[Rfam]
RNA: Small nucleolar RNA snoR8a
Nucleotides: 096
Base pairs, nucleotide, nucleotide: 003096004095006094007093
Number, partner (000 for none) and nucleotide at each position: 001000g002000g003096g004095u005000u006094a007093g008000u009000g010000a011000u012000a013000a014000u015000u016000a017000u018000a019000a020000a021000a022000a023000u024000a025000a026000u027000u028000g029000a030000u031000u032000a033000u034000u035000u036000u037000g038000a039000c040000u041000u042000a043000c044000u045000c046000a047000a048000u049000u050000c051000a052000a053000u054000u055000u056000g057000g058000g059000c060000a061000u062000g063000a064000u065000a066000g067000a068000c069000u070000u071000c072000u073000u074000a075000u076000u077000a078000c079000u080000c081000a082000u083000a084000g085000a086000c087000u088000a089000u090000g091000a092000g093007u094006u095004a096003c